[Rfam]
RNA sequence: UUGUCGAGCCGCGACUGGCGUCGGGUGGGGCACCAUCGGGGAGCGGCCUUCGGAGCACGAGCCGCACGCCUGGGUUCGCCGA
Numbered sequence: 001u002u003g004u005c006g007a008g009c010c011g012c013g014a015c016u017g018g019c020g021u022c023g024g025g026u027g028g029g030g031c032a033c034c035a036u037c038g039g040g041g042a043g044c045g046g047c048c049u050u051c052g053g054a055g056c057a058c059g060a061g062c063c064g065c066a067c068g069c070c071u072g073g074g075u076u077c078g079c080c081g082a
Stems, first nucleotide, its partner, number of pairs: 003051001008047005015040002017070005025036004059077005

A member of the RNA family "ZMP/ZTP riboswitch aptamer (pfl RNA motif)" from Gulosibacter sp. 10, 82 nucleotides long. A search with the family's covariance model found it, with a score of 48 bits. Gene Ontology terms of the family: one-carbon metabolic process and regulation of purine nucleotide biosynthetic process. The base pairs follow the family's consensus structure, which is taken from published work.